A member of the RNA family "MIR2275 microRNA precursor family" from Theobroma umbraticum, 87 nucleotides long. The organism belongs to Theobroma, within Eukaryota.
[Rfam]
RNA sequence: AAGUUGUAUGUAAGAAUUGGAGGAAAUUAAACCCAAACUAACCAGCUUUACUAGGUUUAAUUUUCUCCAAUAUCUUACCUACGGUAU
Numbered sequence: 001a002a003g004u005u006g007u008a009u010g011u012a013a014g015a016a017u018u019g020g021a022g023g024a025a026a027u028u029a030a031a032c033c034c035a036a037a038c039u040a041a042c043c044a045g046c047u048u049u050a051c052u053a054g055g056u057u058u059a060a061u062u063u064u065c066u067c068c069a070a071u072a073u074c075u076u077a078c079c080u081a082c083g084g085u086a087u
Stems, first nucleotide, its partner, number of pairs: 004084005011077004016071006023064008032055002
Rfam 15.1 lists 785 matches to the family in 111 species.